[Rfam]
RNA sequence: GAAAAGGCUAUGAUGAGAAAUAGUAGGUAUUAGGGAUCUCACAGAGAGAAGAUGGUUGGUGCGAAUCUUCAUUGAUCUUAUACUGAAGCAGUCUCGGAGCUGUGAACCGAACAGAGGAAUCUUAGUAGGCUUCAACGGAGUUCCACCGUUAUUCAGGAAACAAUAUCGGAGAUAUCCCGUAUUGAUAGAGUGCAGAGAAAUCUGAAAUUAGGUGGUAACACGGACAUAAUCGUUCGCCCUAAGU
Numbered sequence: 001g002a003a004a005a006g007g008c009u010a011u012g013a014u015g016a017g018a019a020a021u022a023g024u025a026g027g028u029a030u031u032a033g034g035g036a037u038c039u040c041a042c043a044g045a046g047a048g049a050a051g052a053u054g055g056u057u058g059g060u061g062c063g064a065a066u067c068u069u070c071a072u073u074g075a076u077c078u079u080a081u082a083c084u085g086a087a088g089c090a091g092u093c094u095c096g097g098a099g100c101u102g103u104g105a106a107c108c109g110a111a112c113a114g115a116g117g118a119a120u121c122u123u124a125g126u127a128g129g130c131u132u133c134a135a136c137g138g139a140g141u142u143c144c145a146c147c148g149u150u151a152u153u154c155a156g157g158a159a160a161c162a163a164u165a166u167c168g169g170a171g172a173u174a175u176c177c178c179g180u181a182u183u184g185a186u187a188g189a190g191u192g193c194a195g196a197g198a199a200a201u202c203u204g205a206a207a208u209u210a211g212g213u214g215g216u217a218a219c220a221c222g223g224a225c226a227u228a229a230u231c232g233u234u235c236g237c238c239c240u241a242a243g244u
Base pairs, nucleotide, nucleotide: 007100008099015095016094017093018092026084027083028082029081030080039071048070049069050068051067052066053065103134104133105132106131107129108128136148137147138146193204194203195202196201209241210240211239212238221236222235223234224233
RNA: T-box leader